[Rfam]
Bacterial RNase P class A: a 350-nucleotide sequence from Clostridium sp. D5. Gene Ontology terms of the family: tRNA processing, dimeric ribonuclease P complex and ribonuclease P activity.
RNA sequence: UAAGUAAGACAGACAAUCGCGGCUGCGGGAGCUGAAAAGCUGCAGACGAGGAAAGUCCGGGCUUCACAGGGCAGGAUGCCGGAUAACGUCCGGUGGAGGUGACUCCAAGGCCAGUGCAACAGAAAUAUACCGCCGGGAUAUUCCCGGUAAGGGUGGAAAGGCAGUGUAAGAGACUACCGCCUCGCUGGUAACAGAGAGGGCACAUGUAAACCCCAUCCGAAGCAAGACCGAAUAAAAGCCACGUGGCGGCCCGUCACGCUUUAGGUAGGUCGCUUGAGCCUGGUGGCGACAUCAGGCCUAGAUAGAUGAUUGUCCAACGACAUAACCCGGCUUAUCGUCUUGCUUAACCA
Numbered sequence: 001u002a003a004g005u006a007a008g009a010c011a012g013a014c015a016a017u018c019g020c021g022g023c024u025g026c027g028g029g030a031g032c033u034g035a036a037a038a039g040c041u042g043c044a045g046a047c048g049a050g051g052a053a054a055g056u057c058c059g060g061g062c063u064u065c066a067c068a069g070g071g072c073a074g075g076a077u078g079c080c081g082g083a084u085a086a087c088g089u090c091c092g093g094u095g096g097a098g099g100u101g102a103c104u105c106c107a108a109g110g111c112c113a114g115u116g117c118a119a120c121a122g123a124a125a126u127a128u129a130c131c132g133c134c135g136g137g138a139u140a141u142u143c144c145c146g147g148u149a150a151g152g153g154u155g156g157a158a159a160g161g162c163a164g165u166g167u168a169a170g171a172g173a174c175u176a177c178c179g180c181c182u183c184g185c186u187g188g189u190a191a192c193a194g195a196g197a198g199g200g201c202a203c204a205u206g207u208a209a210a211c212c213c214c215a216u217c218c219g220a221a222g223c224a225a226g227a228c229c230g231a232a233u234a235a236a237a238g239c240c241a242c243g244u245g246g247c248g249g250c251c252c253g254u255c256a257c258g259c260u261u262u263a264g265g266u267a268g269g270u271c272g273c274u275u276g277a278g279c280c281u282g283g284u285g286g287c288g289a290c291a292u293c294a295g296g297c298c299u300a301g302a303u304a305g306a307u308g309a310u311u312g313u314c315c316a317a318c319g320a321c322a323u324a325a326c327c328c329g330g331c332u333u334a335u336c337g338u339c340u341u342g343c344u345u346a347a348c349c350a
Base pairs, nucleotide, nucleotide: 001346002345003344004343005342006341007340008339009338010337011335012314013313014312015311016310017309018308020048021047023045024044025043026042027041028040053333054332055331057330058329059328060327061326062222063221064220065219069252070251071250072249074218075217076216077215078214079093080092081091082090083089094108095106096105097104098103109213110212114211115210116207117206118205130152131151132148133147134146135145136144137143138142160178161177163175164174165173179201180199181198182197183196185194186193187192226271227270228269229268236261237260238259239258243257244256245255246254247253278297279296280295281294282293283292284291285290